[Rfam]
RNA sequence: CCAACGGCUCUUUUAAGAGCCACCCACUCACUCGAGUAAAGAGCU
Numbered sequence: 001c002c003a004a005c006g007g008c009u010c011u012u013u014u015a016a017g018a019g020c021c022a023c024c025c026a027c028u029c030a031c032u033c034g035a036g037u038a039a040a041g042a043g044c045u
Stems, first nucleotide, its partner, number of pairs: 006021006